Annotation:
Shown here is a 600-nucleotide part of an RNA from an uncultured bacterium, a member of the family "Bacterial large subunit ribosomal RNA". Rfam's curators put it in the seed alignment. Gene Ontology terms of the family: structural constituent of ribosome and ribosome.

[Rfam]
RNA sequence: UACUAAGAGUCAUUGGUGGAUGAUUUGGCGCUUGAUGGCGAUGAAGGACGUGGUAAGCUGCGAUAAGCGUGGGGUAGGUGCAAACAACCUUUGAUCCCGCGAUUUCCGAAUGGGACAACCUAUCCGUUGUGAGACGGAUAUCAUCAUCUGAAUUCAUAGGAUGAUGAAGCUAAACCGGCUGAAUUGAAACAUCUCAGUAAGCCGAGGAAGAAAAACCAAUAGAGAUUCCCCUAGUAGCGGCGAGCGAAAAGGGAACAGUCUAAACCUCUAAUAUGCCAAGCCUCAGAGCGUUGUAUUAGGGGUGUUGCGGACGAAAGUGAUUCUGAUCUGAGUCAGGAGAAGAAGACUUAAUGUUUUUAGUUGAAGGGUCUGGAAAGACCCGCCAAAGAGGGUGAUAGCCCCGUAAACCAAAAAAACAUUGGCUUCUUUGCUUUUUGUCCAAGUACCGCUUGAUAAGUGGAACCAAGCGGGAAUCUGGGAGAACCAACUUCUAAGACUAAAUACACUCAAGCGACCGAUAGCGAACUAGUACCGUGAGGGAAAAUUGAAAAGAACCCCUGUUAGGGGAGUGAAAUAGAACCUGAAACCAAUUGACUUACA
Number, nucleotide and partner (000 for none) at each position: 001u000002a000003c000004u000005a000006a000007g597008a596009g595010u594011c593012a592013u590014u589015g588016g587017u000018g000019g000020a000021u000022g581023a545024u544025u000026u000027g516028g515029c513030g512031c511032u510033u509034g508035a507036u505037g504038g170039c169040g000041a000042u000043g000044a000045a000046g107047g106048a105049c062050g061051u060052g000053g000054u000055a000056a000057g000058c000059u000060g051061c050062g049063a000064u000065a000066a000067g000068c101069g100070u099071g098072g097073g096074g095075u000076a000077g089078g088079u087080g000081c000082a000083a000084a000085c000086a000087a079088c078089c077090u000091u000092u000093g000094a000095u074096c073097c072098c071099g070100c069101g068102a000103u000104u000105u048106c047107c046108g000109a000110a000111u000112g121113g120114g119115a000116c000117a000118a000119c114120c113121u112122a139123u138124c137125c136126g135127u134128u133129g000130u000131g000132a000133g128134a127135c126136g125137g124138a123139u122140a000141u167142c166143a165144u164145c163146a162147u161148c160149u159150g000151a000152a000153u000154u000155c000156a000157u000158a000159g149160g148161a147162u146163g145164a144165u143166g142167a141168a000169g039170c038171u000172a000173a000174a000175c206176c204177g203178g202179c201180u200181g000182a000183a000184u000185u000186g193187a192188a000189a000190c000191a000192u187193c186194u000195c000196a000197g000198u000199a000200a180201g179202c178203c177204g176205a000206g175207g000208a000209a000210g000211a000212a000213a000214a000215a000216c000217c222218a000219a000220u000221a000222g217223a000224g000225a000226u501227u254228c253229c252230c251231c000232u000233a000234g000235u000236a000237g245238c244239g000240g000241c000242g000243a000244g238245c237246g000247a000248a000249a000250a000251g230252g229253g228254a227255a000256c000257a498258g497259u496260c495261u000262a000263a000264a000265c302266c301267u300268c299269u298270a297271a296272u295273a294274u293275g292276c000277c000278a000279a000280g000281c000282c000283u000284c000285a000286g000287a000288g000289c000290g000291u000292u275293g274294u273295a272296u271297u270298a269299g268300g267301g266302g265303u000304g000305u000306u000307g000308c000309g440310g439311a438312c000313g000314a434315a433316a432317g431318u430319g000320a000321u000322u000323c000324u000325g000326a000327u000328c000329u000330g000331a000332g000333u000334c000335a000336g000337g000338a000339g000340a000341a000342g000343a000344a000345g000346a424347c000348u422349u421350a420351a419352u418353g417354u416355u415356u414357u413358u412359a000360g408361u407362u406363g000364a000365a000366g381367g380368g379369u378370c377371u000372g000373g000374a000375a000376a000377g370378a369379c368380c367381c366382g000383c000384c388385a000386a000387a000388g384389a000390g402391g401392g400393u000394g000395a000396u000397a000398g000399c000400c392401c391402c390403g000404u000405a000406a362407a361408c360409c000410a000411a000412a358413a357414a356415a355416a354417c353418a352419u351420u350421g349422g348423c000424u346425u000426c000427u000428u000429u000430g318431c317432u316433u315434u314435u000436u000437g000438u311439c310440c309441a000442a000443g000444u000445a000446c470447c469448g468449c467450u466451u465452g464453a000454u462455a000456a000457g000458u000459g000460g000461a000462a454463c000464c452465a451466a450467g449468c448469g447470g446471g000472a000473a000474u000475c000476u000477g492478g491479g490480a489481g488482a000483a000484c000485c000486a000487a000488c481489u480490u479491c478492u477493a000494a000495g260496a259497c258498u257499a000500a000501a226502u000503a000504c037505a036506c000507u035508c034509a033510a032511g031512c030513g029514a000515c028516c027517g000518a000519u000520a000521g000522c000523g000524a000525a000526c000527u000528a000529g000530u000531a000532c539533c538534g000535u000536g000537a000538g533539g532540g000541a000542a000543a000544a024545u023546u000547g000548a000549a000550a000551a000552g000553a000554a000555c567556c566557c565558c564559u000560g000561u000562u000563a000564g558565g557566g556567g555568a000569g000570u000571g000572a000573a000574a000575u000576a000577g000578a000579a000580c000581c022582u000583g000584a000585a000586a000587c016588c015589a014590a013591u000592u012593g011594a010595c009596u008597u007598a000599c000600a000